[Rfam]
RNA sequence: UGGGCUGGUCGUAAGACCCGGGUCCACCAAACGGCGGGGAUGAAACCC
Numbered sequence: 001u002g003g004g005c006u007g008g009u010c011g012u013a014a015g016a017c018c019c020g021g022g023u024c025c026a027c028c029a030a031a032c033g034g035c036g037g038g039g040a041u042g043a044a045a046c047c048c
Base pairs, nucleotide, nucleotide: 001026002025003024004023005022006021007018008017009016010015
RNA: DUF3800-XI RNA